The family of this 104-nucleotide sequence from Chinchilla lanigera is "Small nucleolar RNA SNORD46".
It scores 114 bits against the family's covariance model.
Its Rfam clan is "SNORD46 clan".
The pairing is the family consensus, mapped onto this sequence.
Its family is annotated with nucleolus and RNA processing in the Gene Ontology.
Rfam's curators write: U40 is a C/D box small nucleolar RNA, also known as snoZ153 in plants. The human sequence has also been annotated in the sequence databases as U46.
[Rfam]
RNA sequence: AACGGACGUGAUGAGAAAGUAUCCUUAGGCGUGGUCGUGGCCGUCUUGGUCACUUGUGUGCCGCUUGCCGAUGCAAGGACUUGUCAUAGUUACACUGACCCGUU
Numbered sequence: 001a002a003c004g005g006a007c008g009u010g011a012u013g014a015g016a017a018a019g020u021a022u023c024c025u026u027a028g029g030c031g032u033g034g035u036c037g038u039g040g041c042c043g044u045c046u047u048g049g050u051c052a053c054u055u056g057u058g059u060g061c062c063g064c065u066u067g068c069c070g071a072u073g074c075a076a077g078g079a080c081u082u083g084u085c086a087u088a089g090u091u092a093c094a095c096u097g098a099c100c101c102g103u104u
Stems, first nucleotide, its partner, number of pairs: 001104005